Rfam assigns this 64-nucleotide RNA sequence from Myotis myotis to the family "mir-9242 microRNA precursor family". A search with the family's covariance model found it, with a score of 69 bits.
RNA sequence: GGCCUCCCUCUGUGGGGCGAUUGAUCUGGGGGCCCCGUGAUUAAUUGUCCUGCAGAGGGAGACC
Numbered sequence: 001g002g003c004c005u006c007c008c009u010c011u012g013u014g015g016g017g018c019g020a021u022u023g024a025u026c027u028g029g030g031g032g033c034c035c036c037g038u039g040a041u042u043a044a045u046u047g048u049c050c051u052g053c054a055g056a057g058g059g060a061g062a063c064c
Stems, first nucleotide, its partner, number of pairs: 001064002004061023029036002